[Rfam]
RNA sequence: CACCCGACCUCGAGCGAGACCUCCAGCCGACGCCGCCGCACCUGACCCGUCUUCCCCUGGGCCAGGCGCGGCGGCGGACGGAUGGGGAUCCCGCCCGAGGUCCGCCAGGAC
Numbered sequence: 001c002a003c004c005c006g007a008c009c010u011c012g013a014g015c016g017a018g019a020c021c022u023c024c025a026g027c028c029g030a031c032g033c034c035g036c037c038g039c040a041c042c043u044g045a046c047c048c049g050u051c052u053u054c055c056c057c058u059g060g061g062c063c064a065g066g067c068g069c070g071g072c073g074g075c076g077g078a079c080g081g082a083u084g085g086g087g088a089u090c091c092c093g094c095c096c097g098a099g100g101u102c103c104g105c106c107a108g109g110a111c
Stems, first nucleotide, its partner, number of pairs: 010098003014094003018090002021087005027081003031076009041066004046061003
A member of the RNA family "mraW RNA" from Micrococcus luteus, 111 nucleotides long. The base pairs follow the family's consensus structure, which is taken from published work. A search with the family's covariance model found it, with a score of 59 bits. The family has 45 seed sequences and 851 matches in Rfam 15.1.